[Rfam]
RNA sequence: CGGACGCGCGAGGGAGAGUGGGGCAGGCGACUGCCUCCGCCGAAGGAGCAACCGCCCCGGAAUCUCUCAGGCAUCAGGGACCGCGCGCGUCAG
Numbered sequence: 001c002g003g004a005c006g007c008g009c010g011a012g013g014g015a016g017a018g019u020g021g022g023g024c025a026g027g028c029g030a031c032u033g034c035c036u037c038c039g040c041c042g043a044a045g046g047a048g049c050a051a052c053c054g055c056c057c058c059g060g061a062a063u064c065u066c067u068c069a070g071g072c073a074u075c076a077g078g079g080a081c082c083g084c085g086c087g088c089g090u091c092a093g
Base pairs, nucleotide, nucleotide: 006088007087008086009085010084012082013081020037021036022035023034039072040071041070042068043067046066047065048064052060053059